[Rfam]
RNA: Streptomyces RNA 3202
Organism: Streptomyces sp. BK239
RNA sequence: CCACGUCCCGACGCACCCCCCCCGGCGGCGGGACUGCCCCAGGCCGGGCCUCGGCGCCUUCCCCCCCAAGGCGCCGGGCCCGGCCUUCUU
Numbered sequence: 001c002c003a004c005g006u007c008c009c010g011a012c013g014c015a016c017c018c019c020c021c022c023c024g025g026c027g028g029c030g031g032g033a034c035u036g037c038c039c040c041a042g043g044c045c046g047g048g049c050c051u052c053g054g055c056g057c058c059u060u061c062c063c064c065c066c067c068a069a070g071g072c073g074c075c076g077g078g079c080c081c082g083g084c085c086u087u088c089u090u
Stems, first nucleotide, its partner, number of pairs: 005034006012027003041086010052076009